[Rfam]
RNA sequence: AAAUUGACUCUAGUAGGGAGUCCUUAUAUUUAAUGUGACUCCCUAAUGGGGUCAGAUUGA
Dot-bracket structure: ...((((((((..(((((((((..............)))))))))..)))))))).....